Small nucleolar RNA SNORA65: a 130-nucleotide sequence from Molossus molossus. The literature on the family includes a 2001 paper in EMBO J by Huttenhofer et al., "RNomics: an experimental approach that identifies 201 candidates for novel, small, non-messenger RNAs in mouse". Its Rfam clan is "SNORA65 clan". Gene Ontology terms of the family: RNA processing and nucleolus. It scores 102 bits against the family's covariance model. Taxonomically the source falls in Molossus (Eukaryota, Eumetazoa, Teleostomi, Theria).

[Rfam]
RNA sequence: CCUGCCACUGCACCUGAGCAGUUCUCUGUUGGCUGGUGCAAUCCAGUGGUGAGCUGAAACUAAACCCCAGCUUAGGAAACAGGGUUAUUCUUCAUGUGGAGGAGUCUGUGCUGAAAGCAAGGGGACAACC
Numbered sequence: 001c002c003u004g005c006c007a008c009u010g011c012a013c014c015u016g017a018g019c020a021g022u023u024c025u026c027u028g029u030u031g032g033c034u035g036g037u038g039c040a041a042u043c044c045a046g047u048g049g050u051g052a053g054c055u056g057a058a059a060c061u062a063a064a065c066c067c068c069a070g071c072u073u074a075g076g077a078a079a080c081a082g083g084g085u086u087a088u089u090c091u092u093c094a095u096g097u098g099g100a101g102g103a104g105u106c107u108g109u110g111c112u113g114a115a116a117g118c119a120a121g122g123g124g125a126c127a128a129c130c
Base pairs, nucleotide, nucleotide: 005049006048007047008046009045010044017037019035020034021033022031065123066122067121070118071117072116073115075112076111080108081107082106083105085103088100089099090098
Dot-bracket structure: ....((((((......(.((((........).))).)......))))))...............(((..((((.((...((((.(..(((.......)))..).))))..))..))))..))).......